RNA sequence: AGCUUUGCACAGUGGCAGUAUCGUAGCCAAUGAGGUUUAUCCGAGGCACGAUUAUUGCUAAUUUUUGUUUCCAUAUAUAUUUUAGGAUUAUUCCAGUGUGAAAAAUGCUGAUGGCAUUUUGAUAGGGAUUGCAUUGAAUG
Numbered sequence: 001a002g003c004u005u006u007g008c009a010c011a012g013u014g015g016c017a018g019u020a021u022c023g024u025a026g027c028c029a030a031u032g033a034g035g036u037u038u039a040u041c042c043g044a045g046g047c048a049c050g051a052u053u054a055u056u057g058c059u060a061a062u063u064u065u066u067g068u069u070u071c072c073a074u075a076u077a078u079a080u081u082u083u084a085g086g087a088u089u090a091u092u093c094c095a096g097u098g099u100g101a102a103a104a105a106u107g108c109u110g111a112u113g114g115c116a117u118u119u120u121g122a123u124a125g126g127g128a129u130u131g132c133a134u135u136g137a138a139u140g
Stems, first nucleotide, its partner, number of pairs: 020052005026047003034042002080102003083098001085094003115140004

U4 spliceosomal RNA: a 140-nucleotide RNA from Leptonychotes weddellii. By type it is a spliceosomal small nuclear RNA. Pairs were carried over by alignment from the consensus structure, which is taken from published work. Rfam 15.1 lists 32,178 matches to the family in 2,547 species. U4 small nuclear RNA (U4 snRNA) is a component of the major U2-dependent spliceosome.